[Rfam]
RNA sequence: CCCGAGACCGGUGGCGUGGUCUUGUAAUUCAGCUGCUAGGAGGGCGAGGCUGUCGGACGGCGUGAGGUUGGGAGUUCUGUCCUCCGCUUCUCUAUGUCGAUCAGGCGUCCGCGCUAAGCACGGUGUCGAUAUGGUUGGAUUGGGGGAGCCCGGUCUCACCAGGUCGUCUAAGGCGGAGCGAACCGGCCCAGGUCGGAAACGGAGCAGGCAAAAGCUCCCGCACGGUGCAGUAGUGGGAUAGCGCUUGUGAAUAGAAGGCGGUUGGCAGCCCAGUCAACAAAGUCGGACACAGUCUUUU
Number, nucleotide and partner (000 for none) at each position: 001c044002c043003c042004g023005a022006g021007a020008c019009c018010g017011g000012u000013g000014g000015c000016g000017u010018g009019g008020u007021c006022u005023u004024g000025u000026a000027a000028u041029u040030c039031a000032g000033c000034u000035g000036c000037u000038a000039g030040g029041a028042g003043g002044g001045c000046g296047a295048g294049g293050c292051u291052g290053u289054c000055g000056g000057a000058c285059g284060g283061c282062g000063u280064g000065a000066g275067g274068u273069u272070g271071g270072g269073a000074g000075u000076u000077c268078u267079g266080u265081c264082c000083u000084c261085c260086g259087c258088u257089u256090c000091u255092c254093u253094a252095u251096g000097u249098c000099g000100a000101u000102c247103a246104g245105g244106c243107g242108u241109c237110c236111g000112c235113g234114c233115u232116a231117a000118g228119c227120a226121c225122g000123g223124u222125g221126u220127c166128g165129a164130u163131a000132u161133g160134g159135u158136u000137g156138g155139a154140u153141u152142g151143g150144g149145g000146g000147a000148g000149c144150c143151c142152g141153g140154u139155c138156u137157c000158a135159c134160c133161a132162g000163g130164u129165c128166g127167u173168c172169u000170a000171a000172g168173g167174c000175g218176g217177a216178g215179c214180g000181a000182a000183c000184c000185g000186g209187c208188c207189c000190a000191g000192g000193u202194c201195g200196g000197a000198a000199a000200c195201g194202g193203a000204g000205c000206a000207g188208g187209c186210a000211a000212a000213a000214g179215c178216u177217c176218c175219c000220g126221c125222a124223c123224g000225g121226u120227g119228c118229a000230g000231u116232a115233g114234u113235g112236g110237g109238a000239u000240a000241g108242c107243g106244c105245u104246u103247g102248u000249g097250a000251a095252u094253a093254g092255a091256a089257g088258g087259c086260g085261g084262u000263u000264g081265g080266c079267a078268g077269c072270c071271c070272a069273g068274u067275c066276a000277a000278c000279a000280a063281a000282g061283u060284c059285g058286g000287a000288c000289a053290c052291a051292g050293u049294c048295u047296u046297u000298u000
This 298-nucleotide RNA sequence from Argiope bruennichi belongs to the Rfam family "Metazoan signal recognition particle RNA". Pairs were carried over by alignment from the consensus structure, which is taken from published work. A reference for the family is Wild et al. (2002), "Towards the structure of the mammalian signal recognition particle", Curr Opin Struct Biol. A search with the family's covariance model found it, with a score of 257 bits. Its Rfam clan is "SRP clan". NCBI's taxonomy places the organism under Eukaryota, Eumetazoa, Araneae, Araneoidea, Argiope. Gene Ontology terms of the family: signal recognition particle, endoplasmic reticulum targeting and SRP-dependent cotranslational protein targeting to membrane, signal sequence recognition.